[Rfam]
RNA sequence: GGGAGAAGCUCAUGGUGUUGGCUGAAAUGUCUGAACCUGAUUGAGACAUCUUUGUGAUGUGGCACCUCUACGCCCUGAAGCUUCUCAAAGG
Numbered sequence: 001g002g003g004a005g006a007a008g009c010u011c012a013u014g015g016u017g018u019u020g021g022c023u024g025a026a027a028u029g030u031c032u033g034a035a036c037c038u039g040a041u042u043g044a045g046a047c048a049u050c051u052u053u054g055u056g057a058u059g060u061g062g063c064a065c066c067u068c069u070a071c072g073c074c075c076u077g078a079a080g081c082u083u084c085u086c087a088a089a090g091g
Base pairs, nucleotide, nucleotide: 004085005084006083007082008081009080010079
The record is a 91-nucleotide RNA from Phascolarctos cinereus, which matches "Small nucleolar RNA SNORD91 family" in Rfam. On this family, see Huttenhofer et al., EMBO J 2001: "RNomics: an experimental approach that identifies 201 candidates for novel, small, non-messenger RNAs in mouse". A search with the family's covariance model found it, with a score of 53 bits. NCBI's taxonomy places the organism under Eukaryota, Opisthokonta, Deuterostomia, Craniata, Phascolarctos. Rfam classes the family as a C/D-box small nucleolar RNA.